[Rfam]
The family of this 85-nucleotide RNA from Kamiti River virus is "Insect-specific Flavivirus exoribonuclease-resistant RNA element".
NCBI's taxonomy places the organism under Viruses, Riboviria, Kitrinoviricota, Flasuviricetes, Orthoflavivirus.
Rfam classes the family as a cis-regulatory element.
The literature on the family includes a 2017 paper in Viruses by Ng et al., "The 5' and 3' Untranslated Regions of the Flaviviral Genome".
Pairs were carried over by alignment from the consensus structure, which was predicted with LocARNA.
Rfam describes the family as follows. The exoribonuclease-resistant RNA elements (xrRNA) are described throughout all groups of flaviviruses. Usually, each virus harbors two xrRNAs, xrRNA1 and xrRNA2, in the beginning of the 3' UTR. The formation of these stem-loops, especially xrRNA1, is vital to ensure resistance against XRN1 activity. The Y-shaped stem-loop is also termed SL II and SL IV, respectively.
The sequence is in the family's curated seed alignment.
RNA sequence: GGCACGAAAGUGUCGGGCCUGACGCACCCGCUCCCCCGAGUCCCCUGGAAACAGGGUGGGCCUCGAAAAAUCCACCGUAGGAAGG
Numbered sequence: 001g002g003c004a005c006g007a008a009a010g011u012g013u014c015g016g017g018c019c020u021g022a023c024g025c026a027c028c029c030g031c032u033c034c035c036c037c038g039a040g041u042c043c044c045c046u047g048g049a050a051a052c053a054g055g056g057u058g059g060g061c062c063u064c065g066a067a068a069a070a071u072c073c074a075c076c077g078u079a080g081g082a083a084g085g
Stems, first nucleotide, its partner, number of pairs: 001032003010025006033060003043056005
Dot-bracket structure: (((......((((((....))))))....)))(((.......(((((....))))).))).........................